A member of the RNA family "glmS glucosamine-6-phosphate activated ribozyme aptamer" from Salisediminibacterium halotolerans, 165 nucleotides long.
From the family's description: This entry contains a glucosamine-6-phosphate activated ribozyme that is found in the mRNA for GlmS. GlmS is an enzyme that uses fructose-6-phosphate and glutamine to generate glucosamine-6-phosphate. The ribozyme catalyses self cleavage of the glmS mRNA that is thought to regulate GlmS activity.
[Rfam]
RNA sequence: CAGUUUUAUAAAGCGCCUGGACUGUCUAACGGCGAAGAUGGACAGUUGACGAGGAGGAGGUUAAUCGAGAAAUCGGCGGAUACCUCCCGGUUGCUGUCACAACCGAAAGCGAAAGAAGAAAGCGGGAAGGCGACUUUUCGUACAAUUCUUUACGCAUUGGCGACC
Number, nucleotide and partner (000 for none) at each position: 001c000002a000003g000004u000005u000006u000007u000008a000009u000010a000011a000012a000013g000014c000015g000016c000017c000018u000019g000020g047021a046022c045023u044024g043025u042026c041027u040028a000029a000030c000031g000032g000033c000034g000035a000036a000037g000038a000039u000040g027041g026042a025043c024044a023045g022046u021047u020048g000049a000050c000051g000052a000053g000054g000055a000056g087057g086058a085059g084060g083061u000062u000063a000064a000065u076066c075067g074068a073069g000070a000071a000072a000073u068074c067075g066076g065077c000078g000079g000080a000081u000082a000083c060084c059085u058086c057087c056088c105089g104090g103091u102092u101093g100094c000095u000096g000097u000098c000099a000100c093101a092102a091103c090104c089105g088106a000107a000108a000109g155110c154111g153112a000113a151114a150115g149116a000117a000118g000119a000120a000121a000122g000123c140124g139125g138126g137127a136128a135129g134130g000131c000132g000133a000134c129135u128136u127137u126138u125139c124140g123141u000142a000143c000144a000145a000146u000147u000148c000149u115150u114151u113152a000153c111154g110155c109156a000157u000158u000159g000160g000161c000162g000163a000164c000165c000

Rfam classes the family as a riboswitch.
Its family is annotated with catalytic activity and regulation of gene expression in the Gene Ontology.
Pairs were carried over by alignment from the consensus structure, which is taken from published work.